[Rfam]
RNA sequence: CGAAAUCUGAGAGCAAGAAUGAAAUAGUACGAGAGGAACUUUCAUUCGUCACCUCUGGUGUAUCGGUUGUCUGAUAAGGCAGUGCCGAGCAGCUACGUGGCACGAGAUAAAAACUGAAAGCAUCUAAGUUUGAAACUUCGCUUGAAAAGAGAUUUCGUUAUAGAGCACCGGUAAAAGACCGGGUUAAUAGGCUUGGGAUGUACGCACGAAGGUAACGACGUGUUUAGUCCGCAAGUACUAACGCUCAAAU
Number, nucleotide and partner (000 for none) at each position: 001c157002g156003a155004a154005a153006u152007c151008u150009g000010a000011g143012a142013g141014c140015a000016a000017g047018a046019a045020u044021g043022a042023a041024a040025u000026a000027g000028u000029a000030c000031g000032a000033g000034a000035g000036g000037a000038a000039c000040u024041u023042u022043c021044a020045u019046u018047c017048g101049u100050c099051a098052c097053c000054u000055c000056u095057g094058g093059u000060g000061u000062a000063u088064c087065g086066g085067u084068u081069g080070u079071c078072u077073g000074a000075u000076a000077a072078g071079g070080c069081a068082g000083u000084g067085c066086c065087g064088a063089g000090c000091a000092g000093c058094u057095a056096c000097g052098u051099g050100g049101c048102a000103c000104g138105a137106g136107a000108u000109a000110a000111a131112a130113a129114c128115u127116g000117a000118a000119a000120g000121c000122a000123u000124c000125u000126a000127a115128g114129u113130u112131u111132g000133a000134a000135a000136c106137u105138u104139c000140g014141c013142u012143u011144g000145a000146a000147a000148a000149g000150a008151g007152a006153u005154u004155u003156c002157g001158u000159u000160a000161u000162a000163g246164a245165g244166c243167a000168c182169c181170g180171g179172u000173a000174a000175a000176a000177g000178a000179c171180c170181g169182g168183g000184u000185u000186a000187a000188u240189a239190g238191g236192c235193u234194u233195g232196g230197g229198a228199u000200g000201u000202a000203c000204g223205c222206a221207c220208g219209a000210a000211g216212g000213u000214a000215a000216c211217g000218a000219c208220g207221u206222g205223u204224u000225u000226a000227g000228u198229c197230c196231g000232c195233a194234a193235g192236u191237a000238c190239u189240a188241a000242c000243g166244c165245u164246c163247a000248a000249a000250u000

The record is a 250-nucleotide part of an RNA from Methanocorpusculum labreanum, which matches "Archaeal large subunit ribosomal RNA" in Rfam. It is one of the family's seed sequences. Rfam links the family to the GO terms ribosome and structural constituent of ribosome. The family's consensus secondary structure is taken from published work. Lineage of the source: Archaea > Methanobacteriati > Methanobacteriota > Methanomicrobia > Methanocorpusculum labreanum.